[Rfam]
RNA: Fungal signal recognition particle RNA
Organism: Pichia membranifaciens
RNA sequence: UUGCUGUAAUGGCUGUUGUCGGAAGGGUCAAGACCUUGUCGCGGCUUUGGUCCAGCGCUUACAGUUUGAGGUGUCCUGUUCGAUUCCUGCGGUCGGCGUGCGGCAGCUAUGGGAAACCUGGUAUUGUCGUCGCCAGCAAUGAGCUGGGGUACCGCUGAAGGGUAGAAAUACAGCACAGCGUCCAGCCCGUGGCGAAGGCGAAGGGGACCGCAUCUCGCUGGUGUCUACGAGCGUUGGGGUUAAGCCGUUGGUUGACUUCAACUGCGACUGAUAAAAUU
Numbered sequence: 001u002u003g004c005u006g007u008a009a010u011g012g013c014u015g016u017u018g019u020c021g022g023a024a025g026g027g028u029c030a031a032g033a034c035c036u037u038g039u040c041g042c043g044g045c046u047u048u049g050g051u052c053c054a055g056c057g058c059u060u061a062c063a064g065u066u067u068g069a070g071g072u073g074u075c076c077u078g079u080u081c082g083a084u085u086c087c088u089g090c091g092g093u094c095g096g097c098g099u100g101c102g103g104c105a106g107c108u109a110u111g112g113g114a115a116a117c118c119u120g121g122u123a124u125u126g127u128c129g130u131c132g133c134c135a136g137c138a139a140u141g142a143g144c145u146g147g148g149g150u151a152c153c154g155c156u157g158a159a160g161g162g163u164a165g166a167a168a169u170a171c172a173g174c175a176c177a178g179c180g181u182c183c184a185g186c187c188c189g190u191g192g193c194g195a196a197g198g199c200g201a202a203g204g205g206g207a208c209c210g211c212a213u214c215u216c217g218c219u220g221g222u223g224u225c226u227a228c229g230a231g232c233g234u235u236g237g238g239g240u241u242a243a244g245c246c247g248u249u250g251g252u253u254g255a256c257u258u259c260a261a262c263u264g265c266g267a268c269u270g271a272u273a274a275a276a277u278u
Base pairs, nucleotide, nucleotide: 001015003013004012016274017273018272019271020270021269022268027262028261031258032257034254035251036250042247043246044245045244046243047242049240051238052237053236054235055234062220063219064218067217068216069215070214071213072212073211074210075206076205077204079202080201081200082199084196085195086194087192088191089190090189091188092187094136095134096133097132098131099129100128103125106122107121108120109119111118112117137141143186144185145184146183147182148181153180154179155178156177157176162171163170164169